[Rfam]
RNA sequence: GGGCACUUCAAAAAAGAAGACGAACUGAACGUAUAAUAUGCUCCCUUUCAAAAAAAUGAAAGGGAGCUUUCUAUUUUU
Numbered sequence: 001g002g003g004c005a006c007u008u009c010a011a012a013a014a015a016g017a018a019g020a021c022g023a024a025c026u027g028a029a030c031g032u033a034u035a036a037u038a039u040g041c042u043c044c045c046u047u048u049c050a051a052a053a054a055a056a057u058g059a060a061a062g063g064g065a066g067c068u069u070u071c072u073a074u075u076u077u078u
Stems, first nucleotide, its partner, number of pairs: 040067011